This 103-nucleotide RNA sequence from Vibrio aerogenes belongs to the Rfam family "Qrr RNA". By type it is a small RNA.
RNA sequence: UAGCCCUUUAAGCCGAGGGUUAACUAGCCAACAGACGUUGUUAGUGGAGUUUUUUUUGUUCACAUGUUAAGCCAAUUACACGCUUGUAAUUGGCUUUUUUUUG
Numbered sequence: 001u002a003g004c005c006c007u008u009u010a011a012g013c014c015g016a017g018g019g020u021u022a023a024c025u026a027g028c029c030a031a032c033a034g035a036c037g038u039u040g041u042u043a044g045u046g047g048a049g050u051u052u053u054u055u056u057u058g059u060u061c062a063c064a065u066g067u068u069a070a071g072c073c074a075a076u077u078a079c080a081c082g083c084u085u086g087u088a089a090u091u092g093g094c095u096u097u098u099u100u101u102u103g
Stems, first nucleotide, its partner, number of pairs: 001022006038070003044063005072093008
Dot-bracket structure: ((((((..........))))))...............(((...(((((..........)))))....))).((((((((......))))))))..........

From the family's description: This family represents a set of small RNAs (the Qrr RNAs) that are thought to be involved in the regulation of quorum sensing in Vibrio species. It is believed that these RNAs, guided by a protein, Hfq, can mediate the destabilisation of the quorum-sensing master regulators LuxR/HapR mRNAs. For this family Rfam cites "The Small RNA Chaperone Hfq and Multiple Small RNAs Control Quorum Sensing in Vibrio harveyi and Vibrio cholerae" (Lenz et al., Cell, 2004).